Shown here is a 200-nucleotide sequence from Neofusicoccum parvum, a member of the family "U2 spliceosomal RNA". A search with the family's covariance model found it, with a score of 81 bits. The organism belongs to Neofusicoccum parvum, within Eukaryota. The family is grouped with related families in Rfam's "U2 clan".
[Rfam]
RNA sequence: AAGACAUCUGCUGACCAAGCCCACCCUCGCAGAUCAAGCGUAGUAGCUGUUCUUCUUAGUUUAAUCUCUAGGACGUGCCUACGGGUACAUCUAGUGAUUAAACCAGUUUUUGGAAACAGGUUGGCGGCCGCUGAGCCCCGCUGACGUCGCUGGCCACAGUGUCGCCCGUAUCACACUGUCUCGGGCUGACGCGAACAUCA
Numbered sequence: 001a002a003g004a005c006a007u008c009u010g011c012u013g014a015c016c017a018a019g020c021c022c023a024c025c026c027u028c029g030c031a032g033a034u035c036a037a038g039c040g041u042a043g044u045a046g047c048u049g050u051u052c053u054u055c056u057u058a059g060u061u062u063a064a065u066c067u068c069u070a071g072g073a074c075g076u077g078c079c080u081a082c083g084g085g086u087a088c089a090u091c092u093a094g095u096g097a098u099u100a101a102a103c104c105a106g107u108u109u110u111u112g113g114a115a116a117c118a119g120g121u122u123g124g125c126g127g128c129c130g131c132u133g134a135g136c137c138c139c140g141c142u143g144a145c146g147u148c149g150c151u152g153g154c155c156a157c158a159g160u161g162u163c164g165c166c167c168g169u170a171u172c173a174c175a176c177u178g179u180c181u182c183g184g185g186c187u188g189a190c191g192c193g194a195a196c197a198u199c200a
Stems, first nucleotide, its partner, number of pairs: 007033005054073006075088005119155008132144001134142003159192005164186005